[Rfam]
RNA: Small nucleolar RNA Z102/R77
Organism: Quercus lobata
RNA sequence: GAAUGAGAUGAUAAGGAAUAUGUUUCCCUAUUGGUUUGAUUGCAAAUAUGAUGGCAUCAAUCAUGUACUAGCUCUAGUUGAUCGUUC
Numbered sequence: 001g002a003a004u005g006a007g008a009u010g011a012u013a014a015g016g017a018a019u020a021u022g023u024u025u026c027c028c029u030a031u032u033g034g035u036u037u038g039a040u041u042g043c044a045a046a047u048a049u050g051a052u053g054g055c056a057u058c059a060a061u062c063a064u065g066u067a068c069u070a071g072c073u074c075u076a077g078u079u080g081a082u083c084g085u086u087c
Stems, first nucleotide, its partner, number of pairs: 002086004038058001041056003